Record summary
The record is a 189-nucleotide RNA from Anaerobacillus arseniciselenatis, which matches "Lysine riboswitch aptamer" in Rfam. It scores 119 bits against the family's covariance model.

RNA sequence: AGUGGUGGUAGAGGUGCAAAGACCAUGAGUAUGUUUUCUGAGGAUGAUGAGGUCCAGUGAAGAUUACAGAAAGGGGAAUUUGCCGAAGCGUAAUUAGUAACUCACUAUUAAUUAAGCUGGACCUACAUUGAAAAAGUGUAGGGCUGUCACAUAACUAACCCAAUGGUUGUGUGGAGAACUAUCUCACGA
Numbered sequence: 001a002g003u004g005g006u007g008g009u010a011g012a013g014g015u016g017c018a019a020a021g022a023c024c025a026u027g028a029g030u031a032u033g034u035u036u037u038c039u040g041a042g043g044a045u046g047a048u049g050a051g052g053u054c055c056a057g058u059g060a061a062g063a064u065u066a067c068a069g070a071a072a073g074g075g076g077a078a079u080u081u082g083c084c085g086a087a088g089c090g091u092a093a094u095u096a097g098u099a100a101c102u103c104a105c106u107a108u109u110a111a112u113u114a115a116g117c118u119g120g121a122c123c124u125a126c127a128u129u130g131a132a133a134a135a136g137u138g139u140a141g142g143g144c145u146g147u148c149a150c151a152u153a154a155c156u157a158a159c160c161c162a163a164u165g166g167u168u169g170u171g172u173g174g175a176g177a178a179c180u181a182u183c184u185c186a187c188g189a
Stems, first nucleotide, its partner, number of pairs: 007183005016083005023076002032068003037063003087118003091114008119145002122142008147174010